[Rfam]
RNA sequence: GUCAAGAACUUUAUGAGGUAGAGGUAUACUCAUCAGAGUGCUGAAUCACUCCCUUGCCCUUGAAAAGGUCUGAUACUGAGGCCACUUGUGGCCCUAAUGGGGCCCUCCCAGAGCAGAAAGAUGAGUUCCCAGCAGAGCUUUAUGCCGGGAGCUGCCUGGGCGGGAAAAUCCACACUGCAGGCAGGCAGAUGCCACCUUUACCCAAGCCUGGAACAGAAUCAUAGCCAGCCCAGUGAGUUCAAUGGCUGAGUUGAUAAAUCUUGUGAGCCUCAGAACCCAAUUCAGACUACUCUCCCAUGCC
Numbered sequence: 001g002u003c004a005a006g007a008a009c010u011u012u013a014u015g016a017g018g019u020a021g022a023g024g025u026a027u028a029c030u031c032a033u034c035a036g037a038g039u040g041c042u043g044a045a046u047c048a049c050u051c052c053c054u055u056g057c058c059c060u061u062g063a064a065a066a067g068g069u070c071u072g073a074u075a076c077u078g079a080g081g082c083c084a085c086u087u088g089u090g091g092c093c094c095u096a097a098u099g100g101g102g103c104c105c106u107c108c109c110a111g112a113g114c115a116g117a118a119a120g121a122u123g124a125g126u127u128c129c130c131a132g133c134a135g136a137g138c139u140u141u142a143u144g145c146c147g148g149g150a151g152c153u154g155c156c157u158g159g160g161c162g163g164g165a166a167a168a169u170c171c172a173c174a175c176u177g178c179a180g181g182c183a184g185g186c187a188g189a190u191g192c193c194a195c196c197u198u199u200a201c202c203c204a205a206g207c208c209u210g211g212a213a214c215a216g217a218a219u220c221a222u223a224g225c226c227a228g229c230c231c232a233g234u235g236a237g238u239u240c241a242a243u244g245g246c247u248g249a250g251u252u253g254a255u256a257a258a259u260c261u262u263g264u265g266a267g268c269c270u271c272a273g274a275a276c277c278c279a280a281u282u283c284a285g286a287c288u289a290c291u292c293u294c295c296c297a298u299g300c301c
Stems, first nucleotide, its partner, number of pairs: 001301001003299002006294002010250004020061002023058002036051005070285004080226003090104005105120002109116001121222004126217002137207003251273004
Dot-bracket structure: (.((.((..((((......((.((...........(((((......))))).....)).))........[[[[......(((.......(((((.....)))))((..(......)..))((((.((.........(((.................................................................)))........)).)))).)))....................))))((((...............))))........]]]].......))...)).)
This 301-nucleotide RNA sequence from Nannospalax galili belongs to the Rfam family "Nuclear RNase P". The family's RNA type in Rfam is ribozyme. Its Rfam clan is "RNaseP clan". For this family Rfam cites "Ribonuclease P: unity and diversity in a tRNA processing ribozyme" (Frank and Pace, Annu Rev Biochem, 1998). It scores 107 bits against the family's covariance model.